Rfam assigns this 76-nucleotide RNA from Myotis myotis to the family "mir-9229 microRNA precursor family". The organism belongs to Myotis, within Eukaryota. Its family is annotated with miRNA-mediated post-transcriptional gene silencing and RISC complex in the Gene Ontology. The family has 7 seed sequences and 27,225 matches in Rfam 15.1.
RNA sequence: GAAAUACCCCUAUGGAGCAGGACUUGCUUCAGUGGGGUUUUGGUGCUCACUGAGUCUGCCCCUUGAAUAUGUCACU
Numbered sequence: 001g002a003a004a005u006a007c008c009c010c011u012a013u014g015g016a017g018c019a020g021g022a023c024u025u026g027c028u029u030c031a032g033u034g035g036g037g038u039u040u041u042g043g044u045g046c047u048c049a050c051u052g053a054g055u056c057u058g059c060c061c062c063u064u065g066a067a068u069a070u071g072u073c074a075c076u
Stems, first nucleotide, its partner, number of pairs: 001075001004072003011065002014062002017059003021056003029053008037044002
Dot-bracket structure: (..(((....((.((.(((.(((.....((((((((((....)).)))))))))))))).)).))....)))..).